[Rfam]
RNA sequence: CGCAUGCUCCUUAGAUCCACCUCUGGGGGGCGCUGCCCCCAGCAGCUUUCAGGCUGCACAGUCGGAGGUGCUUGAGUCAUUGGCGUGCCACAGCAGUCUACCUGUCCUGCAGCCCCACCUGCAGCACCGGCUGCCCCGCCUCGGCGGGGAGAGCCCCCGGUGCUGCCAGGCUGCAGACGGACACA
Numbered sequence: 001c002g003c004a005u006g007c008u009c010c011u012u013a014g015a016u017c018c019a020c021c022u023c024u025g026g027g028g029g030g031c032g033c034u035g036c037c038c039c040c041a042g043c044a045g046c047u048u049u050c051a052g053g054c055u056g057c058a059c060a061g062u063c064g065g066a067g068g069u070g071c072u073u074g075a076g077u078c079a080u081u082g083g084c085g086u087g088c089c090a091c092a093g094c095a096g097u098c099u100a101c102c103u104g105u106c107c108u109g110c111a112g113c114c115c116c117a118c119c120u121g122c123a124g125c126a127c128c129g130g131c132u133g134c135c136c137c138g139c140c141u142c143g144g145c146g147g148g149g150a151g152a153g154c155c156c157c158c159g160g161u162g163c164u165g166c167c168a169g170g171c172u173g174c175a176g177a178c179g180g181a182c183a184c185a
Stems, first nucleotide, its partner, number of pairs: 002088007010076005018070008027040003030036001042057006102180005109174001111172004121166010133154001135149003

Rfam assigns this 185-nucleotide RNA sequence from Oryzias javanicus to the family "Small nucleolar RNA SNORA53". Gene Ontology terms of the family: nucleolus and RNA processing. From the family's description: The snoRNA ACA53 belongs to the H/ACA family of pseudouridylation guide snoRNAs. Rfam 15.1 lists 1,090 matches to the family in 800 species.